This 108-nucleotide RNA sequence from Rhizobium album belongs to the Rfam family "Rhizobiales sRNA Atu_At1". Lineage of the source: Bacteria > Pseudomonadati > Pseudomonadota > Alphaproteobacteria > Rhizobium.
RNA sequence: GCGCGGGCCGUGUCAACCGGACGCGACAAGGAUGGUGAACAUGACGGUUUUUCCGGUUUCACGCCAUGGCCAACGAAUAGGCAGUCGAGCGCCCGACCUGUCCAGCCC
Numbered sequence: 001g002c003g004c005g006g007g008c009c010g011u012g013u014c015a016a017c018c019g020g021a022c023g024c025g026a027c028a029a030g031g032a033u034g035g036u037g038a039a040c041a042u043g044a045c046g047g048u049u050u051u052u053c054c055g056g057u058u059u060c061a062c063g064c065c066a067u068g069g070c071c072a073a074c075g076a077a078u079a080g081g082c083a084g085u086c087g088a089g090c091g092c093c094c095g096a097c098c099u100g101u102c103c104a105g106c107c108c
Base pairs, nucleotide, nucleotide: 006107007106008105011023012022013021014020025102026101027100028099030097034093035092036091037090040068041067042066043065045063046062069082070081071080